[Rfam]
RNA: Small nucleolar RNA SNORD103/SNORD85
Organism: Acanthochromis polyacanthus
RNA sequence: UCUGGCUGUGAUGACACACUUGCCCUCACUGACAUUAGUUUGAUUGAGACUCUUUAUUUUGCUGAGCCAUG
Numbered sequence: 001u002c003u004g005g006c007u008g009u010g011a012u013g014a015c016a017c018a019c020u021u022g023c024c025c026u027c028a029c030u031g032a033c034a035u036u037a038g039u040u041u042g043a044u045u046g047a048g049a050c051u052c053u054u055u056a057u058u059u060u061g062c063u064g065a066g067c068c069a070u071g
Base pairs, nucleotide, nucleotide: 001071003069004068005067006066